[Rfam]
RNA sequence: AACUCAAUAGGAGUCUUACUUUAUUUCUUAACCUUUGCUAUGUAAGAGUCCCUGGUGUUUUUAUUUAUUUUUUUUUUUUAAUUUU
Number, nucleotide and partner (000 for none) at each position: 001a000002a000003c000004u000005c000006a000007a000008u000009a078010g077011g076012a075013g000014u000015c000016u000017u063018a062019c000020u000021u000022u000023a000024u000025u055026u054027c000028u000029u000030a000031a049032c048033c000034u046035u045036u044037g043038c042039u000040a000041u000042g038043u037044a036045a035046g034047a000048g032049u031050c000051c000052c000053u000054g026055g025056u000057g000058u000059u000060u000061u000062u018063a017064u000065u000066u000067a000068u000069u000070u000071u000072u000073u000074u000075u012076u011077u010078u009079u000080a000081a000082u000083u000084u000085u000

The record is an 85-nucleotide RNA sequence from Vulpes vulpes, which matches "Stem loopII regulatory element in POLB" in Rfam. The family's consensus secondary structure is taken from published work. The match comes from Rfam's covariance-model search (66 bits). Rfam classes the family as a cis-regulatory element. Rfam 15.1 lists 197 matches to the family in 138 species.